Shown here is a 78-nucleotide RNA sequence from Gossypium mustelinum, a member of the family "Small nucleolar RNA SNORD18".
Gene Ontology terms of the family: nucleolus and RNA processing.
The family is grouped with related families in Rfam's "SNORD18 clan".
A reference for the family is Prislei et al. (1993), "Two different snoRNAs are encoded in introns of amphibian and human L1 ribosomal protein genes", Nucleic Acids Res.
NCBI's taxonomy places the organism under Eukaryota, Embryophyta, Gunneridae, Malvoideae, Gossypium.

RNA sequence: GAGAUAUGAUGAGGUUUAAUUGGUCCGUGUUUCUGAUUCAACAGUGACAGACAAAUUUUUUUACCAAACUCUGAUCUC
Number, nucleotide and partner (000 for none) at each position: 001g078002a077003g076004a075005u000006a000007u000008g000009a000010u000011g000012a000013g000014g000015u000016u000017u000018a000019a000020u000021u000022g000023g000024u000025c000026c000027g000028u000029g000030u000031u000032u000033c000034u000035g000036a000037u000038u000039c000040a000041a000042c000043a000044g000045u000046g000047a000048c000049a000050g000051a000052c000053a000054a000055a000056u000057u000058u000059u000060u000061u000062u000063a000064c000065c000066a000067a000068a000069c000070u000071c000072u000073g000074a000075u004076c003077u002078c001